[Rfam]
RNA sequence: CUCUUAUCAAGAGCGGCUGAGGGACUGGCCCGACGAUGCCCGGCAACCUGCCCGUACGGGGAGUGUGGUGCCAAAACCAGAGACCGGAGCGAGAAUGCUGCGGGUCGGAUGAUGAGAG
Numbered sequence: 001c002u003c004u005u006a007u008c009a010a011g012a013g014c015g016g017c018u019g020a021g022g023g024a025c026u027g028g029c030c031c032g033a034c035g036a037u038g039c040c041c042g043g044c045a046a047c048c049u050g051c052c053c054g055u056a057c058g059g060g061g062a063g064u065g066u067g068g069u070g071c072c073a074a075a076a077c078c079a080g081a082g083a084c085c086g087g088a089g090c091g092a093g094a095a096u097g098c099u100g101c102g103g104g105u106c107g108g109a110u111g112a113u114g115a116g117a118g
Stems, first nucleotide, its partner, number of pairs: 001118008013041001015040003021031003025080004042072004047068002050064002053061001076110001082106004